[Rfam]
RNA sequence: GAUGGCAGUGACGACCUGGUAAUAUUCAAGCUCAACAGACCAAAUCACAGGUCUUUCUCUCUGGAUCUACUCAGGGAUUGAUUUGUAUGCCGAUUUUUCCGCUGAACCGAGCCAUC
Numbered sequence: 001g002a003u004g005g006c007a008g009u010g011a012c013g014a015c016c017u018g019g020u021a022a023u024a025u026u027c028a029a030g031c032u033c034a035a036c037a038g039a040c041c042a043a044a045u046c047a048c049a050g051g052u053c054u055u056u057c058u059c060u061c062u063g064g065a066u067c068u069a070c071u072c073a074g075g076g077a078u079u080g081a082u083u084u085g086u087a088u089g090c091c092g093a094u095u096u097u098u099c100c101g102c103u104g105a106a107c108c109g110a111g112c113c114a115u116c
Stems, first nucleotide, its partner, number of pairs: 001116006
RNA: Small nucleolar RNA Z107/R87